[Rfam]
RNA: ALIL pseudoknot
Organism: Promicromonospora citrea
RNA sequence: AGCGAGUUUCUUCGCGGCGGAGCUGGACCGUCCGUCGAGGUGAAGGUCGCGUUCGUCGACUCCCAACGGGAGCAGCACGGUGUCCAGCCGGUCCUGCAGGCGUUGCAUGGCACGCCUGCGCAGAUCGCGCCG
Numbered sequence: 001a002g003c004g005a006g007u008u009u010c011u012u013c014g015c016g017g018c019g020g021a022g023c024u025g026g027a028c029c030g031u032c033c034g035u036c037g038a039g040g041u042g043a044a045g046g047u048c049g050c051g052u053u054c055g056u057c058g059a060c061u062c063c064c065a066a067c068g069g070g071a072g073c074a075g076c077a078c079g080g081u082g083u084c085c086a087g088c089c090g091g092u093c094c095u096g097c098a099g100g101c102g103u104u105g106c107a108u109g110g111c112a113c114g115c116c117u118g119c120g121c122a123g124a125u126c127g128c129g130c131c132g
Stems, first nucleotide, its partner, number of pairs: 016032005078132005089127002092124002095122003